About this RNA: The family of this 107-nucleotide sequence is "RT-18 RNA". It is annotated as a small RNA.
RNA sequence: CAGCACUUGCUGAAGAAAAGCCGACAGGACACAGCUUAGUACACUUCGGGCCAGGUCUCGCCUUGGAACAUCCCGCGGCGCUGGAACGGUUGUGAGGCUACAAGGAG
Number, nucleotide and partner (000 for none) at each position: 001c012002a011003g010004c009005a000006c000007u000008u000009g004010c003011u002012g001013a000014a000015g000016a000017a000018a000019a099020g098021c097022c096023g000024a000025c000026a000027g000028g000029a000030c094031a093032c092033a091034g090035c089036u088037u000038a000039g000040u000041a000042c083043a082044c078045u077046u000047c000048g000049g000050g000051c000052c000053a000054g000055g000056u000057c000058u000059c000060g000061c000062c000063u000064u000065g000066g000067a000068a000069c000070a000071u000072c000073c000074c000075g000076c000077g045078g044079c000080g000081c000082u043083g042084g000085a000086a000087c000088g036089g035090u034091u033092g032093u031094g030095a000096g022097g021098c020099u019100a000101c000102a000103a000104g000105g000106a000107g000